[Rfam]
RNA sequence: AUUAAUCGAAGAGGUCGCGACCAAGACAAGUAAACCAAUCGAGUCACUGUAAUGACAAAGAAAUUGAUUGAAAAGUGCGGUUGCCGAAGUCGGUAAUUCGUUACAGCGGAUUACUCUCUGGGACGUAGCCCAAUAGGUUGCGGACUGUCACGAGAAUAUUCUUGUGGAGCGCUUUCGACAAUG
Numbered sequence: 001a002u003u004a005a006u007c008g009a010a011g012a013g014g015u016c017g018c019g020a021c022c023a024a025g026a027c028a029a030g031u032a033a034a035c036c037a038a039u040c041g042a043g044u045c046a047c048u049g050u051a052a053u054g055a056c057a058a059a060g061a062a063a064u065u066g067a068u069u070g071a072a073a074a075g076u077g078c079g080g081u082u083g084c085c086g087a088a089g090u091c092g093g094u095a096a097u098u099c100g101u102u103a104c105a106g107c108g109g110a111u112u113a114c115u116c117u118c119u120g121g122g123a124c125g126u127a128g129c130c131c132a133a134u135a136g137g138u139u140g141c142g143g144a145c146u147g148u149c150a151c152g153a154g155a156a157u158a159u160u161c162u163u164g165u166g167g168a169g170c171g172c173u174u175u176c177g178a179c180a181a182u183g
Base pairs, nucleotide, nucleotide: 006178007177008176009175010173011172017084018083019082020081021080022079025076033069034068036066037065038064039063088119089118092115093114094113095112096111097110098109099108120146121145124142125141126140127139128138129137130136148167149166150165151164152163153162154161